[Rfam]
RNA sequence: ACAAAUCUGAAGAGGCAGAAUAGUACGCUUAUAGCACAGUUCAGAAAGUUGGCGGACGUUGCGAGCCAAUCUGCGUGAUAGCUGAACUCGCUGCGGAGGAGUGGCUGUGAAGGUUUAGCAGUCGCCGUAAGCCUGCGUUAUAGGCAAAGAGUGGAUGACAUUUGUCAUCAAGCAGGGUGGUACCGCGAGAAUCUCGUCCCUGGC
Numbered sequence: 001a002c003a004a005a006u007c008u009g010a011a012g013a014g015g016c017a018g019a020a021u022a023g024u025a026c027g028c029u030u031a032u033a034g035c036a037c038a039g040u041u042c043a044g045a046a047a048g049u050u051g052g053c054g055g056a057c058g059u060u061g062c063g064a065g066c067c068a069a070u071c072u073g074c075g076u077g078a079u080a081g082c083u084g085a086a087c088u089c090g091c092u093g094c095g096g097a098g099g100a101g102u103g104g105c106u107g108u109g110a111a112g113g114u115u116u117a118g119c120a121g122u123c124g125c126c127g128u129a130a131g132c133c134u135g136c137g138u139u140a141u142a143g144g145c146a147a148a149g150a151g152u153g154g155a156u157g158a159c160a161u162u163u164g165u166c167a168u169c170a171a172g173c174a175g176g177g178u179g180g181u182a183c184c185g186c187g188a189g190a191a192u193c194u195c196g197u198c199c200c201u202g203g204c
Base pairs, nucleotide, nucleotide: 007099008098015094016093017092018091027082028081029080037073038072039071048070049069050068051067052066053065102124103123104122105121106120107119108118126137127136128135154169155168156167157166158165159164174201175200176199177198185197186196187195188194189193

The record is a 204-nucleotide sequence from Sporomusa silvacetica, which matches "T-box leader" in Rfam. A search with the family's covariance model found it, with a score of 127 bits. Rfam classes the family as a cis-regulatory leader. Rfam's curators write: Uncharged tRNA acts as the effector for transcription antitermination of genes in the T-box leader family.